[Rfam]
RNA sequence: CAACAAAAACGAUUUGCUUUUCGUAUAAUCCCGAGAAUCGGCUUGGGAGUCUCUACGAGGUCACCGUAAUGACCUGGCUACGAGAAGAUCAUUGGACUUG
Number, nucleotide and partner (000 for none) at each position: 001c000002a000003a000004c000005a000006a000007a000008a000009a000010c000011g000012a000013u000014u000015u000016g000017c000018u086019u085020u084021u083022c082023g081024u080025a079026u000027a000028a000029u048030c047031c046032c045033g044034a043035g042036a000037a000038u000039c000040g000041g000042c035043u034044u033045g032046g031047g030048a029049g000050u000051c000052u000053c000054u000055a000056c000057g000058a075059g074060g073061u072062c071063a070064c000065c000066g000067u000068a000069a000070u063071g062072a061073c060074c059075u058076g000077g000078c000079u025080a024081c023082g022083a021084g020085a019086a018087g000088a000089u000090c000091a000092u000093u000094g000095g000096a000097c000098u000099u000100g000
RNA: Purine riboswitch aptamer
Organism: Paenibacillus aquistagni